RNA: Bacterial antisense RNA HPnc0260
RNA sequence: AUUCAGUUACCUUUCAUUUUUUUGAUGAUUUGGGCGAAAUAAUCAUAGUUUUUAACAAUUUUACAAGCAAGCAAAAAAAAACCGCGCCAUAGGGCACGGUUUCAGAAUUUUUGGUGCGUCCGAGUAGACUCGAACUACCGACCCCCACCA
Numbered sequence: 001a002u003u004c005a006g007u008u009a010c011c012u013u014u015c016a017u018u019u020u021u022u023u024g025a026u027g028a029u030u031u032g033g034g035c036g037a038a039a040u041a042a043u044c045a046u047a048g049u050u051u052u053u054a055a056c057a058a059u060u061u062u063a064c065a066a067g068c069a070a071g072c073a074a075a076a077a078a079a080a081a082c083c084g085c086g087c088c089a090u091a092g093g094g095c096a097c098g099g100u101u102u103c104a105g106a107a108u109u110u111u112u113g114g115u116g117c118g119u120c121c122g123a124g125u126a127g128a129c130u131c132g133a134a135c136u137a138c139c140g141a142c143c144c145c146c147a148c149c150a
Base pairs, nucleotide, nucleotide: 013038014037015036019032060075061074062073112147113146114145116143121140122139124138125137126136127135
Dot-bracket structure: ............(((...(............)...))).....................(((..........)))....................................(((.(....((.((((.......))))))..).)))...